The family of this 60-nucleotide RNA from Mycolicibacterium hassiacum is "Actino-pnp RNA".

RNA sequence: CACGGUCUUCGGUAGUGGCUGCCGGGAUAGGAAUCCCGGCCGCUUCGAUCGAUGGCCGUA
Numbered sequence: 001c002a003c004g005g006u007c008u009u010c011g012g013u014a015g016u017g018g019c020u021g022c023c024g025g026g027a028u029a030g031g032a033a034u035c036c037c038g039g040c041c042g043c044u045u046c047g048a049u050c051g052a053u054g055g056c057c058g059u060a
Stems, first nucleotide, its partner, number of pairs: 002059006009052005017044003021040008